[Rfam]
Nucleotides: 258
Stems, first nucleotide, its partner, number of pairs: 001159008011145004017045007047102005055096003062089005067082006106140003113133005162171003173256001176254004180196005201247003204243005211235001217230005
Number, partner (000 for none) and nucleotide at each position: 001159g002158g003157a004156a005155a006154u007153u008152u009000g010000a011145g012144a013143a014142g015000a016000g017045c018044c019043a020042u021041c022040c023039u024000u025000a026000g027000u028000a029000c030000g031000a032000g033000a034000g035000g036000a037000c038000c039023g040022g041021g042020a043019u044018g045017g046000a047102c048101g049100c050099a051098c052000c053000g054000c055096u056095g057094g058000u059000g060000u061000a062089c063088c064087a065086g066085u067082u068081g069080u070079u071078c072077c073000g074000c075000c076000a077072g078071g079070a080069g081068c082067a083000u084000u085066g086065c087064u088063g089062g090000g091000u092000a093000g094057c095056u096055a097000u098051g099050u100049g101048c102047g103000g104000g105000a106140u107139g108138g109000a110000u111000a112000a113133g114132c115131g116130c117129u118000g119000a120000a121000a122000g123000c124000a125000u126000c127000u128000a129117a130116g131115u132114g133113c134000g135000a136000a137000g138108c139107c140106a141000g142014c143013u144012u145011c146000a147000a148000g149000a150000u151000g152008a153007g154006a155005u156004u157003u158002c159001c160000c161000a162171u163170u164169c165000g166000u167000a168000a169164g170163a171162a172000g173256u174000a175000a176254g177253a178252c179251c180196c181195c182194u183193g184192a185000g186000a187000g188000a189000c190000g191000a192184u193183c194182a195181g196180g197000u198000a199000g200000a201247u202246a203245g204243g205242c206241u207240a208239g209000a210000a211235g212000u213000g214000g215000a216000a217230g218229u219228g220227c221226a222000g223000u224000g225000a226221u227220g228219u229218a230217u231000g232000g233000a234000g235211c236000g237000g238000a239208c240207u241206a242205g243204u244000a245203c246202u247201a248000a249000u250000c251179g252178g253177u254176c255000g256173a257000g258000g

Rfam assigns this 258-nucleotide part of an RNA from Falseniella ignava to the family "Bacterial large subunit ribosomal RNA".
The base pairs follow the family's consensus structure, which is taken from published work.
It scores 2860 bits against the family's covariance model.